[Rfam]
RNA sequence: CACAGCUCUGCUCCCGACUGCUCAAACAUCCCUUUAUGUGCUGUAUUAAUCCAUAGAAGAAAAUCUCUUUUAAUGAGGAAUGAUAUAGUUACGAACUCUCCAGAGCCAUAAUUAGAGCAAACUAAUUGAAGUUGUGUUUUGACACACUUUCCAAAUUCACGGGUACUGCAUGACAUAUUCACAACACUGUUGCUGCACAGCCAUGGUGACAGCAAAAUCAUUAGGCUAAUAACGCUUAUUUUCAUUCCGAUCAUGCCGGCAGCACCCGCCAAACACUGCUCCAGCCAGGGCUCGCGCGCUCCCCGAGUUUCCACGGAAAACACCAGCAGUGAUUAUUAGGACUUCCGUGGGAGCUCUAACGCGAAGGA
Numbered sequence: 001c002a003c004a005g006c007u008c009u010g011c012u013c014c015c016g017a018c019u020g021c022u023c024a025a026a027c028a029u030c031c032c033u034u035u036a037u038g039u040g041c042u043g044u045a046u047u048a049a050u051c052c053a054u055a056g057a058a059g060a061a062a063a064u065c066u067c068u069u070u071u072a073a074u075g076a077g078g079a080a081u082g083a084u085a086u087a088g089u090u091a092c093g094a095a096c097u098c099u100c101c102a103g104a105g106c107c108a109u110a111a112u113u114a115g116a117g118c119a120a121a122c123u124a125a126u127u128g129a130a131g132u133u134g135u136g137u138u139u140u141g142a143c144a145c146a147c148u149u150u151c152c153a154a155a156u157u158c159a160c161g162g163g164u165a166c167u168g169c170a171u172g173a174c175a176u177a178u179u180c181a182c183a184a185c186a187c188u189g190u191u192g193c194u195g196c197a198c199a200g201c202c203a204u205g206g207u208g209a210c211a212g213c214a215a216a217a218u219c220a221u222u223a224g225g226c227u228a229a230u231a232a233c234g235c236u237u238a239u240u241u242u243c244a245u246u247c248c249g250a251u252c253a254u255g256c257c258g259g260c261a262g263c264a265c266c267c268g269c270c271a272a273a274c275a276c277u278g279c280u281c282c283a284g285c286c287a288g289g290g291c292u293c294g295c296g297c298g299c300u301c302c303c304c305g306a307g308u309u310u311c312c313a314c315g316g317a318a319a320a321c322a323c324c325a326g327c328a329g330u331g332a333u334u335a336u337u338a339g340g341a342c343u344u345c346c347g348u349g350g351g352a353g354c355u356c357u358a359a360c361g362c363g364a365a366g367g368a
Base pairs, nucleotide, nucleotide: 044361046359047358048357050351051350052349053348054347057344058343059342066079067078068077069076070075085336086335087334088333089332090331091330092329096105097104098103115293116292117291118290128150129149130148131147133146134145135144136143137142162267163266166262191208192207193206194205195204212256213255214254225243228240229239230238231237

The family of this 368-nucleotide RNA sequence from Upupa epops is "ncRNA Repressor of NFAT (nuclear factor of activated T cells)". The pairing is the family consensus, mapped onto this sequence. A reference for the family is Willingham et al. (2005), "A strategy for probing the function of noncoding RNAs finds a repressor of NFAT", Science. Taxonomically the source falls in Upupa (Eukaryota, Craniata, Sauropsida, Neognathae). The family's RNA type in Rfam is non-coding RNA gene.